[Rfam]
Rfam assigns this 84-nucleotide RNA sequence from Olea europaea to the family "Small nucleolar RNA SNORD25". By type it is a C/D-box small nucleolar RNA. A search with the family's covariance model found it, with a score of 60 bits. The source organism's lineage runs through Eukaryota, Streptophytina, Oleaceae, Oleeae and Olea europaea. Rfam 15.1 lists 985 matches to the family in 241 species.
RNA sequence: AACAACUGUGAUGAACUCUACAUACCUGUAGUGAUUUGCGAAUAUGAUCGCAAUUGUAAUGAACAUCUAAGGGACUGAGUUGUU
Number, nucleotide and partner (000 for none) at each position: 001a000002a083003c082004a081005a080006c079007u000008g000009u000010g000011a000012u000013g000014a000015a000016c000017u000018c000019u000020a000021c000022a000023u000024a000025c000026c000027u000028g000029u000030a000031g000032u000033g000034a000035u000036u000037u000038g000039c000040g000041a000042a000043u000044a000045u000046g000047a000048u000049c000050g000051c000052a000053a000054u000055u000056g000057u000058a000059a000060u000061g000062a000063a000064c000065a000066u000067c000068u000069a000070a000071g000072g000073g000074a000075c000076u000077g000078a000079g006080u005081u004082g003083u002084u000